[Rfam]
RNA sequence: UCGGCAAACCGUUCUAUCGCUGUUUCGCAAGAAAGAGAGGAAAGUCCGGGCAAGGCAGAGUACCAUGCUUCUUAACGGGAAGAUAGGCGAAAGCUUAUAGUAGUGGAACAGAAAAUAACCGCCUUAUUUUUUCGGAAAUAGGGUAAGGGUGAAAAGGUGAGGUAAGAGCUCACCAGUGCCUGUGGUGACAUGGGCAGCUGUGUGCCUCAUGGCUUGCAAGAUCAAGUAUACCGACAGCUGUAGACUUUACUCGGUCGAUGUCGGGGGGUAGAUUGCUCGAGACAUAGGGUGACUUAUGUUCUAGAUAAAUGAUAGAAGUUCCCUUCGGGGAAAACAGGACCCGGCUUAUAGGUUUGCCAACUUU
Numbered sequence: 001u002c003g004g005c006a007a008a009c010c011g012u013u014c015u016a017u018c019g020c021u022g023u024u025u026c027g028c029a030a031g032a033a034a035g036a037g038a039g040g041a042a043a044g045u046c047c048g049g050g051c052a053a054g055g056c057a058g059a060g061u062a063c064c065a066u067g068c069u070u071c072u073u074a075a076c077g078g079g080a081a082g083a084u085a086g087g088c089g090a091a092a093g094c095u096u097a098u099a100g101u102a103g104u105g106g107a108a109c110a111g112a113a114a115a116u117a118a119c120c121g122c123c124u125u126a127u128u129u130u131u132u133c134g135g136a137a138a139u140a141g142g143g144u145a146a147g148g149g150u151g152a153a154a155a156g157g158u159g160a161g162g163u164a165a166g167a168g169c170u171c172a173c174c175a176g177u178g179c180c181u182g183u184g185g186u187g188a189c190a191u192g193g194g195c196a197g198c199u200g201u202g203u204g205c206c207u208c209a210u211g212g213c214u215u216g217c218a219a220g221a222u223c224a225a226g227u228a229u230a231c232c233g234a235c236a237g238c239u240g241u242a243g244a245c246u247u248u249a250c251u252c253g254g255u256c257g258a259u260g261u262c263g264g265g266g267g268g269u270a271g272a273u274u275g276c277u278c279g280a281g282a283c284a285u286a287g288g289g290u291g292a293c294u295u296a297u298g299u300u301c302u303a304g305a306u307a308a309a310u311g312a313u314a315g316a317a318g319u320u321c322c323c324u325u326c327g328g329g330g331a332a333a334a335c336a337g338g339a340c341c342c343g344g345c346u347u348a349u350a351g352g353u354u355u356g357c358c359a360a361c362u363u364u
Stems, first nucleotide, its partner, number of pairs: 001360001003358008011349001012317007020037002023034004042347003046344005051216004058250001060248001063212005068082005083098001085096004099207002103205003107201001119148002121144009156174006176198001177196008220274004231264005241258001243256003281300008

Rfam assigns this 364-nucleotide sequence from Ancylomarina salipaludis to the family "Bacterial RNase P class A". It scores 242 bits against the family's covariance model.